[Rfam]
RNA: mir-148/mir-152 microRNA precursor family
RNA sequence: UUGAGGUGAAGUUCUGUGUUACACUCCGGCCGUGGCUACGAGGGGUCAGUGCAUCACAGAACUUUGUCUCGAG
Numbered sequence: 001u002u003g004a005g006g007u008g009a010a011g012u013u014c015u016g017u018g019u020u021a022c023a024c025u026c027c028g029g030c031c032g033u034g035g036c037u038a039c040g041a042g043g044g045g046u047c048a049g050u051g052c053a054u055c056a057c058a059g060a061a062c063u064u065u066g067u068c069u070c071g072a073g
Stems, first nucleotide, its partner, number of pairs: 004069013022051004028047004